[Rfam]
The family of this 87-nucleotide RNA sequence from Allosediminivita pacifica is "L2-Alphaproteobacteria ribosomal protein leader". Taxonomically the source falls in Allosediminivita (Bacteria, Pseudomonadati, Alphaproteobacteria, Paracoccaceae). Pairs were carried over by alignment from the consensus structure, which is taken from published work. The family's RNA type in Rfam is cis-regulatory leader. A reference for the family is Eckert and Weinberg (2020), "Discovery of 20 novel ribosomal leader candidates in bacteria and archaea", BMC Microbiol.
RNA sequence: GGGGACCUAAGGGGCCCUAUACCCGGGCGGCUCGCCGCCCCUGACAUAGGCCCGCCUGCCGGGCCGCAAGCUAACGGAAGACAGAAA
Numbered sequence: 001g002g003g004g005a006c007c008u009a010a011g012g013g014g015c016c017c018u019a020u021a022c023c024c025g026g027g028c029g030g031c032u033c034g035c036c037g038c039c040c041c042u043g044a045c046a047u048a049g050g051c052c053c054g055c056c057u058g059c060c061g062g063g064c065c066g067c068a069a070g071c072u073a074a075c076g077g078a079a080g081a082c083a084g085a086a087a
Base pairs, nucleotide, nucleotide: 001018002017003016004015006014007013008012027067028066029065030064031063032062033061